About this RNA: Rfam assigns this 81-nucleotide sequence from Pseudorhodoferax sp. Leaf267 to the family "SAH (S-adenosyl-L-homocysteine) riboswitch aptamer".
Nucleotides: 081
Base pairs, nucleotide, nucleotide: 004057005056006055007054008053021046022045023044024043025042
Number, partner (000 for none) and nucleotide at each position: 001000g002000c003000c004057c005056c006055c007054g008053a009000g010000g011000a012000g013000c014000g015000u016000u017000g018000c019000a020000u021046c022045g023044c024043c025042g026000c027000g028000g029000c030000u031000g032000c033000a034000g035000g036000g037000c038000a039000g040000c041000c042025c043024g044023g045022c046021g047000c048000c049000a050000g051000g052000c053008u054007c055006g056005g057004g058000a059000u060000c061000g062000a063000a064000c065000a066000a067000c068000g069000a070000c071000g072000c073000u074000c075000a076000c077000c078000g079000g080000c081000c